[Rfam]
RNA sequence: CCCCCAAGGGGAAGCGAAGACCCUAUAGAGCUUUACUGCAAGCUGUCGCUGAGACGUGGUCGCCAUUGUGCAGCAUAGGUAGGAGUCAUUACACAGGUACCCGCGCCAGCGGGCCACCGAGACAUCAUUGAAAUACUACCCGAUGGUGACUGCGACUCUCACUCCGGGAGGAGGACACCGGUAGCUGGGCAGUUUGACUGGGGCGGUACGCGCUCGAAAAGAUAUCGAGCGCGCCCCAAGAUUUCCUCACUCGGGUCGGAGACCCGAGGAAGAGCGCAAGAGCAUACGGAAGUCUGACAGUGACAUUCCCAACGAGUGUCGCUGACGCGAAAGCGUGGUCUAGCGAACCUACGAGGCCCAUUGAUGGGGCCCGUAGAUGACAGAAAAGCUACCUUAGGGAUAACAGAGUCGUCACUCGCAAGAGCACAUAUCGACCGAGUGGCUUGCUACCUCGAUGUCGGUUCCCUCCAUCCUGCCCGUGCAGAAGCGGGCAAGGGUGAGGUUGUUCGCCUAUUAAAGGAGGUCGUGAGCUGGGUUUAGACCGUCGUGAGACAGGUCGGCUGCUAUCUAUUGGGGGUGUUAC
Numbered sequence: 001c002c003c004c005c006a007a008g009g010g011g012a013a014g015c016g017a018a019g020a021c022c023c024u025a026u027a028g029a030g031c032u033u034u035a036c037u038g039c040a041a042g043c044u045g046u047c048g049c050u051g052a053g054a055c056g057u058g059g060u061c062g063c064c065a066u067u068g069u070g071c072a073g074c075a076u077a078g079g080u081a082g083g084a085g086u087c088a089u090u091a092c093a094c095a096g097g098u099a100c101c102c103g104c105g106c107c108a109g110c111g112g113g114c115c116a117c118c119g120a121g122a123c124a125u126c127a128u129u130g131a132a133a134u135a136c137u138a139c140c141c142g143a144u145g146g147u148g149a150c151u152g153c154g155a156c157u158c159u160c161a162c163u164c165c166g167g168g169a170g171g172a173g174g175a176c177a178c179c180g181g182u183a184g185c186u187g188g189g190c191a192g193u194u195u196g197a198c199u200g201g202g203g204c205g206g207u208a209c210g211c212g213c214u215c216g217a218a219a220a221g222a223u224a225u226c227g228a229g230c231g232c233g234c235c236c237c238a239a240g241a242u243u244u245c246c247u248c249a250c251u252c253g254g255g256u257c258g259g260a261g262a263c264c265c266g267a268g269g270a271a272g273a274g275c276g277c278a279a280g281a282g283c284a285u286a287c288g289g290a291a292g293u294c295u296g297a298c299a300g301u302g303a304c305a306u307u308c309c310c311a312a313c314g315a316g317u318g319u320c321g322c323u324g325a326c327g328c329g330a331a332a333g334c335g336u337g338g339u340c341u342a343g344c345g346a347a348c349c350u351a352c353g354a355g356g357c358c359c360a361u362u363g364a365u366g367g368g369g370c371c372c373g374u375a376g377a378u379g380a381c382a383g384a385a386a387a388g389c390u391a392c393c394u395u396a397g398g399g400a401u402a403a404c405a406g407a408g409u410c411g412u413c414a415c416u417c418g419c420a421a422g423a424g425c426a427c428a429u430a431u432c433g434a435c436c437g438a439g440u441g442g443c444u445u446g447c448u449a450c451c452u453c454g455a456u457g458u459c460g461g462u463u464c465c466c467u468c469c470a471u472c473c474u475g476c477c478c479g480u481g482c483a484g485a486a487g488c489g490g491g492c493a494a495g496g497g498u499g500a501g502g503u504u505g506u507u508c509g510c511c512u513a514u515u516a517a518a519g520g521a522g523g524u525c526g527u528g529a530g531c532u533g534g535g536u537u538u539a540g541a542c543c544g545u546c547g548u549g550a551g552a553c554a555g556g557u558c559g560g561c562u563g564c565u566a567u568c569u570a571u572u573g574g575g576g577g578u579g580u581u582a583c
Stems, first nucleotide, its partner, number of pairs: 001577007010569003014564002022398004027394002029390005035193004042185007051158003055154014078140005085123003100113005162173004196209001197207003210232006235338002241293006247273002250268006274283002298324009326335001328333001349376005355371005407448003411445001412442007422432002459534001460532004464526001465523005472497002476491005500512004540558004544553003
Dot-bracket structure: (((((((..(((.((......((((.(((((((.((((...(((((((..(((.((((((((((((((.........(((((..(((............(((((....))))).......)))............))))))))))))))))))).)))...((((....)))).....)))))))....))))..((((.....))).)((((((...........))))))..((....((((((((.((((((.......))))))...))((......))....))))))....(((((((((.........))))))))).(.(....).).))..........(((((.(((((.......)))))))))).........)))))..))))))........(((.((((((((...((.......))...)))))))..))))..........(((((((((((..((..(((((......)))))....))..((((.....))))......)))))..)..)))).).....(((((((....))).))))....))..))).)))))))......
Shown here is a 583-nucleotide part of an RNA from Halohasta litchfieldiae, a member of the family "Archaeal large subunit ribosomal RNA". Pairs were carried over by alignment from the consensus structure, which is taken from published work. Clan: LSU clan. The organism belongs to Halohasta, within Archaea.